[Rfam]
RNA sequence: GGAUAUCUUCAGGGCGGGGUGCAAAUCCCCACCGGCGGUAUAGCCCGCGAGCUAAGUUUUAGCAGAUUCGGUUAGAUUCCGAAGCCGACAGUAUAGUCUGGAUGAAAGAAGGUAAUA
Numbered sequence: 001g002g003a004u005a006u007c008u009u010c011a012g013g014g015c016g017g018g019g020u021g022c023a024a025a026u027c028c029c030c031a032c033c034g035g036c037g038g039u040a041u042a043g044c045c046c047g048c049g050a051g052c053u054a055a056g057u058u059u060u061a062g063c064a065g066a067u068u069c070g071g072u073u074a075g076a077u078u079c080c081g082a083a084g085c086c087g088a089c090a091g092u093a094u095a096g097u098c099u100g101g102a103u104g105a106a107a108g109a110a111g112g113u114a115a116u117a
Stems, first nucleotide, its partner, number of pairs: 004114007017029003031097002033087002035048004043085002051063003067083005089100003

This 117-nucleotide RNA from Clostridium sp. DSM 8431 belongs to the Rfam family "FMN riboswitch aptamer (RFN element)".
Rfam describes the family as follows. The RFN element is a highly conserved domain that is found frequently in the 5'-untranslated regions of prokaryotic mRNAs that encode for flavin mononucleotide (FMN) biosynthesis and transport proteins.
It scores 120 bits against the family's covariance model.
The organism belongs to Clostridium, within Bacteria.